[Rfam]
Nucleotides: 133
Base pairs, nucleotide, nucleotide: 002058003057004056007050010045011044012043013042014041015040016039019036021034022033023032070126072124073123074122076120077119081116082115083113084112085111086110088108090106091105092104093103
Number, partner (000 for none) and nucleotide at each position: 001000g002058c003057c004056c005000u006000g007050u008000g009000g010045u011044u012043g013042c014041u015040g016039g017000a018000g019036g020000c021034u022033g023032u024000u025000g026000a027000c028000c029000a030000c031000u032023g033022c034021a035000a036019c037000a038000c039016c040015u041014g042013g043012u044011g045010g046000u047000g048000g049000a050007g051000g052000g053000g054000g055000u056004g057003g058002g059000g060000u061000a062000g063000a064000g065000c066000a067000g068000u069000g070126c071000u072124g073123u074122g075000c076120c077119u078000u079000a080000u081116g082115c083113a084112u085111g086110g087000g088108g089000u090106c091105u092104g093103u094000g095000u096000u097000u098000c099000c100000u101000c102000a103093g104092c105091a106090g107000c108088u109000g110086c111085c112084a113083u114000a115082g116081c117000c118000u119077g120076g121000a122074c123073a124072c125000u126070g127000u128000a129000c130000a131000u132000g133000g
Background: The family of this 133-nucleotide RNA from Cavia porcellus is "Small nucleolar RNA SNORA84". Pairs were carried over by alignment from the consensus structure, which was predicted with WAR. A search with the family's covariance model found it, with a score of 66 bits. Gene Ontology terms of the family: nucleolus and RNA processing. Rfam 15.1 lists 757 matches to the family in 629 species. The literature on the family includes a 2002 paper in Curr Biol by Marker et al., "Experimental RNomics: identification of 140 candidates for small non-messenger RNAs in the plant Arabidopsis thaliana".